The record is a 103-nucleotide RNA, which matches "folP RNA" in Rfam. Rfam classes the family as a cis-regulatory element.

[Rfam]
RNA sequence: UACAUGGAGGAAAUGCCAUGGCGGUGGAUGUACGUCCAUCGAGCCGGUUUGAUGAUUAUUUCCCUGAUUAUCAAUUCGGCUGCAGAUGAUCAUACUCCUCAAU
Numbered sequence: 001u002a003c004a005u006g007g008a009g010g011a012a013a014u015g016c017c018a019u020g021g022c023g024g025u026g027g028a029u030g031u032a033c034g035u036c037c038a039u040c041g042a043g044c045c046g047g048u049u050u051g052a053u054g055a056u057u058a059u060u061u062c063c064c065u066g067a068u069u070a071u072c073a074a075u076u077c078g079g080c081u082g083c084a085g086a087u088g089a090u091c092a093u094a095c096u097c098c099u100c101a102a103u
Base pairs, nucleotide, nucleotide: 003020004019005018006017007016022041023040024039025038026037027036028035042081043080044079045078047076049074050073051072052071053070054069055068056067057066058065